[Rfam]
RNA: Archaeal large subunit ribosomal RNA, nucleotides 1397 to 1799
RNA sequence: AGUAGUAGCAGCAAAGUAGGGUGCGAAUCCCUACCGCCGAAAGGGCCCGGGUUCCUCGUCGAUGUUCGUCAGGCGAGGGUUAGCCGGUCCUAAGCCUGUCCUUAACAAGAGGCAGGUAAAAGGGAAACAGGUUAAUAUUCCUGUGCCACCUGAGUACCUGCGGUAACGCAAGCUUGGUCCUUGACACCUUAAGGUACGUCGAGUGGGGCUAUCGCCCCAUUUAACCGUUGAAGCCCGAGGAGAGCCGUAAUGGCGAGAACCGGGUGAAUGCGGGAAUAGCUCCCCGAAAUAGGGGGUUCGACUGAGCCUUGGGGUCCGUGAAAAGAGGGUCAAGACUUGGGAUCUCAGGUGUCCGUACCUAGAACCGACACUGGUGCCCCUAGGUGAGUAGCCUUAGGCGCGU
Numbered sequence: 001a002g003u004a005g006u007a008g009c010a011g012c013a014a015a016g017u018a019g020g021g022u023g024c025g026a027a028u029c030c031c032u033a034c035c036g037c038c039g040a041a042a043g044g045g046c047c048c049g050g051g052u053u054c055c056u057c058g059u060c061g062a063u064g065u066u067c068g069u070c071a072g073g074c075g076a077g078g079g080u081u082a083g084c085c086g087g088u089c090c091u092a093a094g095c096c097u098g099u100c101c102u103u104a105a106c107a108a109g110a111g112g113c114a115g116g117u118a119a120a121a122g123g124g125a126a127a128c129a130g131g132u133u134a135a136u137a138u139u140c141c142u143g144u145g146c147c148a149c150c151u152g153a154g155u156a157c158c159u160g161c162g163g164u165a166a167c168g169c170a171a172g173c174u175u176g177g178u179c180c181u182u183g184a185c186a187c188c189u190u191a192a193g194g195u196a197c198g199u200c201g202a203g204u205g206g207g208g209c210u211a212u213c214g215c216c217c218c219a220u221u222u223a224a225c226c227g228u229u230g231a232a233g234c235c236c237g238a239g240g241a242g243a244g245c246c247g248u249a250a251u252g253g254c255g256a257g258a259a260c261c262g263g264g265u266g267a268a269u270g271c272g273g274g275a276a277u278a279g280c281u282c283c284c285c286g287a288a289a290u291a292g293g294g295g296g297u298u299c300g301a302c303u304g305a306g307c308c309u310u311g312g313g314g315u316c317c318g319u320g321a322a323a324a325g326a327g328g329g330u331c332a333a334g335a336c337u338u339g340g341g342a343u344c345u346c347a348g349g350u351g352u353c354c355g356u357a358c359c360u361a362g363a364a365c366c367g368a369c370a371c372u373g374g375u376g377c378c379c380c381u382a383g384g385u386g387a388g389u390a391g392c393c394u395u396a397g398g399c400g401c402g403u
Stems, first nucleotide, its partner, number of pairs: 016034006035400004043379004049359002054078006063071002085355003089123002094117006101109002127144005147351008180327003186315009198302004202221006225273004234264004244254003365374002382394003